Tryptophan operon leader: a 104-nucleotide sequence from Gibbsiella quercinecans. About the family: At least 6 amino acid operons are known to be regulated by attenuation. In each a leader sequence of 150-200 bp is found upstream of the first gene in the operon. NCBI's taxonomy places the organism under Bacteria, Pseudomonadati, Pseudomonadota, Enterobacterales, Gibbsiella. A search with the family's covariance model found it, with a score of 74 bits.
RNA sequence: CUUCGUUGGUGGCGCACCUCCCUUCCGCGGGCGGUAUAAUCGCGCAUACCUGUCAUUUGACACUGCAGAUUUCCUAAGCCCGCAUCGCAUGCGGGCUUUUUUAU
Numbered sequence: 001c002u003u004c005g006u007u008g009g010u011g012g013c014g015c016a017c018c019u020c021c022c023u024u025c026c027g028c029g030g031g032c033g034g035u036a037u038a039a040u041c042g043c044g045c046a047u048a049c050c051u052g053u054c055a056u057u058u059g060a061c062a063c064u065g066c067a068g069a070u071u072u073c074c075u076a077a078g079c080c081c082g083c084a085u086c087g088c089a090u091g092c093g094g095g096c097u098u099u100u101u102u103a104u
Stems, first nucleotide, its partner, number of pairs: 009043004014037001016035003020031003077097007
The family's consensus secondary structure is taken from published work.